[Rfam]
RNA: Molybdenum/Tungsten riboswitch aptamer (Moco RNA motif)
Organism: Clostridium niameyense
RNA sequence: ACUAAAAUUGUUCUCCGAAUUAAUAUGCCUAAAGGAUUUCCCAGGGAAUAUUAGUCUGGAUUUUAUAUCCACAGGGUGUUCUUAGAAAUGAGGAUGCCUCCCGAAUUUGGAAAGGGGAAUAAGUACGUAGGAC
Numbered sequence: 001a002c003u004a005a006a007a008u009u010g011u012u013c014u015c016c017g018a019a020u021u022a023a024u025a026u027g028c029c030u031a032a033a034g035g036a037u038u039u040c041c042c043a044g045g046g047a048a049u050a051u052u053a054g055u056c057u058g059g060a061u062u063u064u065a066u067a068u069c070c071a072c073a074g075g076g077u078g079u080u081c082u083u084a085g086a087a088a089u090g091a092g093g094a095u096g097c098c099u100c101c102c103g104a105a106u107u108u109g110g111a112a113a114g115g116g117g118a119a120u121a122a123g124u125a126c127g128u129a130g131g132a133c
Stems, first nucleotide, its partner, number of pairs: 003127001006124001011119006019055008028046002034041002057071005074099011100110002